Bacterial RNase P class A: a 400-nucleotide sequence from Nocardioides marmotae. The family's consensus secondary structure is taken from published work. Lineage of the source: Bacteria > Actinomycetota > Propionibacteriales > Nocardioidaceae > Nocardioides.
Nucleotides: 400
Stems, first nucleotide, its partner, number of pairs: 001396010011385001012342007020041002023038006046383003050380005055223004062278004067219005072086005087101001088099004102214002107212002109208003124153002126149003130145006161179006181203001182201002185198005227299004258290006270282004306325008
Number, partner (000 for none) and nucleotide at each position: 001396c002395g003394g004393g005392c006391u007390g008389g009388c010387c011385g012342g013341g014340c015339g016338a017337c018336c019000g020041c021040g022000g023038c024037g025036c026035a027034c028033c029000u030000c031000c032000g033028g034027g035026u036025g037024c038023g039000g040021c041020g042000a043000g044000g045000a046383a047382g048381g049000u050380c051379c052378g053377g054376g055223c056222u057221c058220c059000a060000c061000a062278g063277g064276g065275c066000a067219g068218g069217g070216u071215g072086g073085u074084g075083g076082g077000u078000a079000a080000c081000a082076c083075c084074c085073a086072c087101c088099c089098g090097g091096g092000g093000u094000g095000a096091c097090c098089c099088g100000c101087g102214g103213g104000a105000a106000a107212g108211u109208g110207c111206c112000a113000c114000a115000g116000a117000g118000a119000a120000c121000a122000g123000a124153c125152c126149g127148c128147c129000a130145c131144c132143c133142g134141g135140c136000u137000c138000c139000g140135g141134c142133c143132g144131g145130g146000c147128g148127g149126c150000a151000a152125g153124g154000g155000u156000g157000a158000a159000a160000c161179g162178g163177u164176g165175g166174u167000g168000c169000a170000a171000g172000a173000g174166a175165c176164c177163a178162c179161c180000a181203g182201c183200g184000a185198c186197c187196c188195g189194g190000g191000c192000g193000a194189c195188c196187g197186g198185g199000c200183c201182g202000g203181c204000u205000c206111g207110g208109c209000a210000a211108a212107c213103c214102c215071c216070a217069c218068c219067c220058g221057g222056a223055g224000c225000a226000a227299g228298g229297u230296c231000a232000a233000g234000a235000a236000g237000u238000c239000g240000c241000g242000g243000g244000u245000c246000c247000g248000c249000c250000c251000g252000c253000g254000a255000u256000g257000c258290g259289u260288g261287c262286a263285c264000g265000u266000u267000c268000g269000a270282g271281g272280g273279c274000u275065g276064c277063c278062c279273g280272c281271c282270c283000g284000a285263g286262u287261g288260c289259a290258c291000g292000g293000g294000u295000a296230g297229a298228c299227c300000g301000c302000u303000g304000g305000a306325g307324g308323g309322c310321g311320u312319c313318g314000g315000c316000a317000a318313c319312g320311g321310c322309g323308c324307u325306c326000g327000u328000a329000g330000a331000u332000g333000g334000a335000u336018g337017g338016u339015c340014g341013c342012c343000c344000c345000c346000c347000g348000a349000c350000g351000c352000c353000c354000c355000g356000c357000g358000a359000g360000g361000g362000g363000c364000c365000c366000g367000g368000g369000g370000a371000c372000a373000g374000a375000a376054c377053c378052c379051g380050g381048c382047c383046u384000a385011c386000a387010g388009g389008c390007c391006a392005g393004c394003c395002c396001g397000u398000c399000c400000g